The record is a 113-nucleotide sequence from Actinomycetales bacterium JB111, which matches "SAM (S-adenosyl methionine) riboswitch aptamer" in Rfam.
SAM-IV is a mRNA element that regulates gene expression via direct sensing of S-adenosylmethionine (SAM or AdoMet).
The organism belongs to Actinomycetales, within Bacteria.
Rfam 15.1 lists 2,360 matches to the family in 1,305 species.
It scores 75 bits against the family's covariance model.

[Rfam]
RNA sequence: GGUCUUGAGAACCAGUGCAAAGCCCCGGCUCGCUGGUCGGCAACCCCCCUCGUGUGGCGGGGGUGCUCCGGGUGAUGACCUGGUCUCGCAGGUAGCGAGGCAACGCCCGGCGC
Numbered sequence: 001g002g003u004c005u006u007g008a009g010a011a012c013c014a015g016u017g018c019a020a021a022g023c024c025c026c027g028g029c030u031c032g033c034u035g036g037u038c039g040g041c042a043a044c045c046c047c048c049c050u051c052g053u054g055u056g057g058c059g060g061g062g063g064u065g066c067u068c069c070g071g072g073u074g075a076u077g078a079c080c081u082g083g084u085c086u087c088g089c090a091g092g093u094a095g096c097g098a099g100g101c102a103a104c105g106c107c108c109g110g111c112g113c
Stems, first nucleotide, its partner, number of pairs: 001080004009038001011037006021030002039067003044063003048057002083101007
Dot-bracket structure: ((((....(.((((((....((......)).)))))))(((..(((.((......))...))).))).........))))..(((((((.....)))))))............